[Rfam]
RNA sequence: CUAGAAGUAUCUUACUAUUAUUAUAACCCAAUAUAAUAUGAAUACUCGUGUAUAGCGUAGCUUUCCUUAAUUAGGAGCAGUGAUAUUAUAUCAUGUAGGCGCAGAGAUGUAAGAACUUCUAA
Numbered sequence: 001c002u003a004g005a006a007g008u009a010u011c012u013u014a015c016u017a018u019u020a021u022u023a024u025a026a027c028c029c030a031a032u033a034u035a036a037u038a039u040g041a042a043u044a045c046u047c048g049u050g051u052a053u054a055g056c057g058u059a060g061c062u063u064u065c066c067u068u069a070a071u072u073a074g075g076a077g078c079a080g081u082g083a084u085a086u087u088a089u090a091u092c093a094u095g096u097a098g099g100c101g102c103a104g105a106g107a108u109g110u111a112a113g114a115a116c117u118u119c120u121a122a
Base pairs, nucleotide, nucleotide: 002121003120004119005118006117007116010114011113012112013111014110015109022035023034024033025032036051037050038049039048040047041046065075066074067073081093082092083091084090
The record is a 122-nucleotide sequence, which matches "RAGATH-7-assoc RNA" in Rfam. Rfam classes the family as a small RNA. The base pairs follow the family's consensus structure, which is taken from published work.